[Rfam]
RNA: MIR2907 microRNA precursor family
RNA sequence: GCGCCCCCUCCUCCACCCACUUAGCCGCCGAGUGGCAGCUGAGCGGGGGCCUCGGGGUGGCGC
Numbered sequence: 001g002c003g004c005c006c007c008c009u010c011c012u013c014c015a016c017c018c019a020c021u022u023a024g025c026c027g028c029c030g031a032g033u034g035g036c037a038g039c040u041g042a043g044c045g046g047g048g049g050c051c052u053c054g055g056g057g058u059g060g061c062g063c
Base pairs, nucleotide, nucleotide: 001061002060005057006056007055008054016049017048018047020043021042022041023040024039025038028035029034
Dot-bracket structure: ((..((((.......(((.((((((..((....))..))))))...)))....))))..))..